[Rfam]
RNA sequence: AAAACGAAUAUCAAUAACCUUCAUAUAUUUUUGGGGAUAUGGCCCAUCUGUUUCUACCCGACUACCAUAAAUGGUUGGACUAUGAGGGAAAGUUGAAGCGGC
Numbered sequence: 001a002a003a004a005c006g007a008a009u010a011u012c013a014a015u016a017a018c019c020u021u022c023a024u025a026u027a028u029u030u031u032u033g034g035g036g037a038u039a040u041g042g043c044c045c046a047u048c049u050g051u052u053u054c055u056a057c058c059c060g061a062c063u064a065c066c067a068u069a070a071a072u073g074g075u076u077g078g079a080c081u082a083u084g085a086g087g088g089a090a091a092g093u094u095g096a097a098g099c100g101g102c
Stems, first nucleotide, its partner, number of pairs: 018088008032046004058078007
Record summary:
A member of the RNA family "Purine riboswitch aptamer" from Terrilactibacillus tamarindi, 102 nucleotides long. It scores 79 bits against the family's covariance model. Taxonomically the source falls in Terrilactibacillus (Bacteria, Bacillota, Caryophanales, Bacillaceae). Rfam describes the family as follows. Riboswitches are metabolite binding domains within certain messenger RNAs that serve as precision sensors for their corresponding targets. The base pairs follow the family's consensus structure, which is taken from published work.